[Rfam]
RNA: Guanidine-I riboswitch aptamer
Nucleotides: 103
Base pairs, nucleotide, nucleotide: 007058008057009056010055011054012053015048016047020045021044022042023039024038025037026036027035059076060075061074062073063072064071078098080101084096085095086094
Number, partner (000 for none) and nucleotide at each position: 001000u002000a003000c004000a005000u006000g007058g008057u009056u010055u011054u012053c013000u014000a015048g016047g017000g018000u019000u020045c021044c022042g023039c024038g025037a026036g027035c028000g029000c030000a031000a032000g033000c034000a035027g036026c037025u038024c039023g040000g041000u042022c043000u044021g045020g046000a047016c048015c049000a050000a051000g052000a053012g054011a055010a056009a057008a058007c059076g060075c061074a062073c063072a064071g065000c066000u067000a068000a069000c070000c071064c072063u073062g074061u075060g076059u077000u078098c079000a080101c081000g082000g083000a084096g085095g086094g087000a088000u089000a090000a091000a092000a093000g094086c095085c096084c097000g098078g099000g100000a101080g102000g103000a